[Rfam]
RNA sequence: UCUCUGAUAGUAUAUCGGUUAGUACACGCGCCUGUCACUGUGAUGAGCGCUUCUAUUCGCAAUUCGCGCGAAAGCUGGGUUCGACUCCCAGUCAGAGAG
Numbered sequence: 001u002c003u004c005u006g007a008u009a010g011u012a013u014a015u016c017g018g019u020u021a022g023u024a025c026a027c028g029c030g031c032c033u034g035u036c037a038c039u040g041u042g043a044u045g046a047g048c049g050c051u052u053c054u055a056u057u058c059g060c061a062a063u064u065c066g067c068g069c070g071a072a073a074g075c076u077g078g079g080u081u082c083g084a085c086u087c088c089c090a091g092u093c094a095g096a097g098a099g
Stems, first nucleotide, its partner, number of pairs: 001098007010025004027070005075091005
Notes:
tRNA: a 99-nucleotide RNA sequence from Pterulicium gracile. The family's consensus secondary structure is taken from published work. Lineage of the source: Eukaryota > Basidiomycota > Agaricomycetes > Pleurotineae > Pterulicium. By type it is a transfer RNA. Rfam links the family to the GO term triplet codon-amino acid adaptor activity. It scores 46 bits against the family's covariance model.